[Rfam]
RNA sequence: UUUCCAUCCAGACCGGCUGAGGGACAGGCCCUUCGACGCCGGGGCAACCUGAGGGCGAUCCCGUCGAGGAUGACCCGCACGGUGCCAACUCCUGCGGGGGCGUUGCCCACCGGAAGAUGGUUG
Numbered sequence: 001u002u003u004c005c006a007u008c009c010a011g012a013c014c015g016g017c018u019g020a021g022g023g024a025c026a027g028g029c030c031c032u033u034c035g036a037c038g039c040c041g042g043g044g045c046a047a048c049c050u051g052a053g054g055g056c057g058a059u060c061c062c063g064u065c066g067a068g069g070a071u072g073a074c075c076c077g078c079a080c081g082g083u084g085c086c087a088a089c090u091c092c093u094g095c096g097g098g099g100g101c102g103u104u105g106c107c108c109a110c111c112g113g114a115a116g117a118u119g120g121u122u123g
Base pairs, nucleotide, nucleotide: 001123004120005119006118007117008116013042014041015040016039017038021031022030023029025094026093027092028091043086044085045084046083048082049081051078053076054075090115095112096111097110099108100107

A member of the RNA family "SAM riboswitch aptamer (S box leader)" from Solilutibacter silvestris, 123 nucleotides long. The match comes from Rfam's covariance-model search (73 bits). Gene Ontology term of the family: regulation of gene expression. NCBI's taxonomy places the organism under Bacteria, Pseudomonadati, Gammaproteobacteria, Lysobacterales, Solilutibacter. Pairs were carried over by alignment from the consensus structure, which is taken from published work. The SAM riboswitch is found upstream of a number of genes which code for proteins involved in methionine or cysteine biosynthesis in Gram-positive bacteria.